[Rfam]
RNA sequence: UAAAUCUUAAAUAUCAUGACUCGUAUAUCCUCGGUAAUAUGGUCUGAGUGUCUCUACCUGGUUCCCAUUAAAGAACUAGACUACGAGUUAAAGUAUUGGUUGU
Numbered sequence: 001u002a003a004a005u006c007u008u009a010a011a012u013a014u015c016a017u018g019a020c021u022c023g024u025a026u027a028u029c030c031u032c033g034g035u036a037a038u039a040u041g042g043u044c045u046g047a048g049u050g051u052c053u054c055u056a057c058c059u060g061g062u063u064c065c066c067a068u069u070a071a072a073g074a075a076c077u078a079g080a081c082u083a084c085g086a087g088u089u090a091a092a093g094u095a096u097u098g099g100u101u102g103u
Base pairs, nucleotide, nucleotide: 018089019088020087021086022085023084024083025082030048031047032046033045034044058079059078060077061076062075063074064073

Overview: The record is a 103-nucleotide sequence from Pontibacillus marinus, which matches "Purine riboswitch aptamer" in Rfam. Rfam 15.1 lists 4,097 matches to the family in 1,411 species. The family's consensus secondary structure is taken from published work. NCBI's taxonomy places the organism under Bacteria, Bacillota, Caryophanales, Bacillaceae, Pontibacillus marinus.